Shown here is a 138-nucleotide sequence from Phascolarctos cinereus, a member of the family "Small nucleolar RNA SNORA14". The source organism's lineage runs through Eukaryota, Bilateria, Amniota, Diprotodontia and Phascolarctos. ACA14 is a member of the H/ACA class of snoRNA that guide the sites of modification of uridines to pseudouridines. The match comes from Rfam's covariance-model search (126 bits).
[Rfam]
RNA sequence: CAGCAUUCUUAAACCCUCUUGGUAGCAUUGCUGAAAACGCUUCCAAGAUAUGAGUGAAUGCAACAGAAAAUUGCAGAUUAAUCCAAAAUGCUAAGCAUUUUCUUCUGACUUUGCAUUAUUUCACAUCUGCGACAAUUU
Numbered sequence: 001c002a003g004c005a006u007u008c009u010u011a012a013a014c015c016c017u018c019u020u021g022g023u024a025g026c027a028u029u030g031c032u033g034a035a036a037a038c039g040c041u042u043c044c045a046a047g048a049u050a051u052g053a054g055u056g057a058a059u060g061c062a063a064c065a066g067a068a069a070a071u072u073g074c075a076g077a078u079u080a081a082u083c084c085a086a087a088a089u090g091c092u093a094a095g096c097a098u099u100u101u102c103u104u105c106u107g108a109c110u111u112u113g114c115a116u117u118a119u120u121u122c123a124c125a126u127c128u129g130c131g132a133c134a135a136u137u138u
Base pairs, nucleotide, nucleotide: 003061004060005059006058008054009053010052011051017048018047019046020045021044022043024041025040026039065138066137067136071132072131073130074129075128076127077126087117088116089115090114091113093111095109